RNA sequence: GGAGUGUUAGCUCAGCUGGGAGAGCUCCUGCCUUACAAGCAGGCGGUCAUAGGUUCAAGUCCUAUACACUCCA
Dot-bracket structure: (((((((..((((........)))).(((((.......))))).....(((((.......)))))))))))).
Description:
Rfam assigns this 73-nucleotide sequence from Mycoplasma mycoides to the family "tRNA". Gene Ontology term of the family: triplet codon-amino acid adaptor activity. The sequence is in the family's curated seed alignment. Lineage of the source: Bacteria > Bacillati > Mycoplasmatota > Mycoplasmataceae > Mycoplasma. Rfam's curators write: Transfer RNA (tRNA) molecules are approximately 80 nucleotides in length.